[Rfam]
RNA sequence: GGAUAACACUUUUUGCUAUUUUUGGUCAAUAAUACAAUGAUACAUGAGAUAACUUUUUCACGUAUCAUUGUGUUAUUGGUCGAAAAUAGAAAAACAGUGUUAUUC
Numbered sequence: 001g002g003a004u005a006a007c008a009c010u011u012u013u014u015g016c017u018a019u020u021u022u023u024g025g026u027c028a029a030u031a032a033u034a035c036a037a038u039g040a041u042a043c044a045u046g047a048g049a050u051a052a053c054u055u056u057u058u059c060a061c062g063u064a065u066c067a068u069u070g071u072g073u074u075a076u077u078g079g080u081c082g083a084a085a086a087u088a089g090a091a092a093a094a095c096a097g098u099g100u101u102a103u104u105c
Stems, first nucleotide, its partner, number of pairs: 002104004011094004016089004021084023045060005
Shown here is a 105-nucleotide RNA sequence from Prunus yedoensis, a member of the family "MIR6274 microRNA precursor family". A search with the family's covariance model found it, with a score of 86 bits. The family has 2 seed sequences and 342 matches in Rfam 15.1. Gene Ontology terms of the family: miRNA-mediated post-transcriptional gene silencing and RISC complex.